RNA sequence: UUGAAACUCCGUCCACAAAUGGAUAAGAUUUCGUUCUUAGUGUGUAUGAGCUCUUGAAAAAAAAAGAAAAGGAGCAAUAGUCAAUUUCCUGUCCUAUCGAGGGGUUGGCUAUUGCUCCUUUUUU
Numbered sequence: 001u002u003g004a005a006a007c008u009c010c011g012u013c014c015a016c017a018a019a020u021g022g023a024u025a026a027g028a029u030u031u032c033g034u035u036c037u038u039a040g041u042g043u044g045u046a047u048g049a050g051c052u053c054u055u056g057a058a059a060a061a062a063a064a065a066g067a068a069a070a071g072g073a074g075c076a077a078u079a080g081u082c083a084a085u086u087u088c089c090u091g092u093c094c095u096a097u098c099g100a101g102g103g104g105u106u107g108g109c110u111a112u113u114g115c116u117c118c119u120u121u122u123u124u
Stems, first nucleotide, its partner, number of pairs: 008023005061121001069120012082107003086103003090099001